[Rfam]
The record is a 138-nucleotide RNA sequence from Labrus bergylta, which matches "Small nucleolar RNA SNORA22" in Rfam.
RNA sequence: UUGCACAGCGAACACCCAGGGAUGCUACCAUGGCUCUCUCUGGUCUCUAACGUCUGUGCUACAGUGACUCUGGUCUUUUUCCUCUGCAUUAGAAGAAGUUUAGUCUCUUCUACAUGUAUUCAGAUGAUCAGAACAAAC
Numbered sequence: 001u002u003g004c005a006c007a008g009c010g011a012a013c014a015c016c017c018a019g020g021g022a023u024g025c026u027a028c029c030a031u032g033g034c035u036c037u038c039u040c041u042g043g044u045c046u047c048u049a050a051c052g053u054c055u056g057u058g059c060u061a062c063a064g065u066g067a068c069u070c071u072g073g074u075c076u077u078u079u080u081c082c083u084c085u086g087c088a089u090u091a092g093a094a095g096a097a098g099u100u101u102a103g104u105c106u107c108u109u110c111u112a113c114a115u116g117u118a119u120u121c122a123g124a125u126g127a128u129c130a131g132a133a134c135a136a137a138c
Base pairs, nucleotide, nucleotide: 003059004058005057006056007055008054010053014048016043017042018041019040020039022037024034025033026032061077064074065073083124084123085122086121087116088115089114091111092110093109094108095107096106
Its family is annotated with nucleolus and RNA processing in the Gene Ontology. From the family's description: ACA22 is a member of the H/ACA class of snoRNA that guide the sites of modification of uridines to pseudouridines. The family's RNA type in Rfam is H/ACA-box small nucleolar RNA.